[Rfam]
This 61-nucleotide RNA sequence from Neltuma glandulosa belongs to the Rfam family "Plastid-psbA-4 3UTR RNA". Plastid psbA-4 is a non-coding RNA (ncRNA) present in plastids. It was identified in inverted repeat sequences in the 3 prime untranslate region (3UTR) of photosystem II quinone-binding protein (psbA). For this family Rfam cites "Retrograde signaling in plants: A critical review focusing on the GUN pathway and beyond" (Richter et al., Plant Commun, 2023). It is annotated as a cis-regulatory element.
RNA sequence: AAAGUAAAGGAGCAAUAUCAACCUUCUUGAUAGAACAAGAAAUUCAUUAUUGCUCCUUUAC
Number, nucleotide and partner (000 for none) at each position: 001a000002a000003a000004g000005u000006a059007a058008a057009g056010g055011a054012g053013c052014a051015a050016u049017a048018u000019c000020a000021a044022c000023c000024u041025u040026c039027u038028u037029g036030a000031u000032a000033g000034a000035a000036c029037a028038a027039g026040a025041a024042a000043u000044u021045c000046a000047u000048u017049a016050u015051u014052g013053c012054u011055c010056c009057u008058u007059u006060a000061c000